[Rfam]
RNA: ZMP/ZTP riboswitch aptamer (pfl RNA motif)
Organism: Natranaerovirga hydrolytica
RNA sequence: UAAACUCUAUACGACUGGCGGAUAAGUAGGAUACACCUACAGGGAGUAUAGAGUAUGUUAAGCCGACCGCCUGGGCAUUCUAU
Dot-bracket structure: ...(((((((((..(([[[[[.....((((.....))))..))..))))))))).....(.(((..]]]]]..))).).....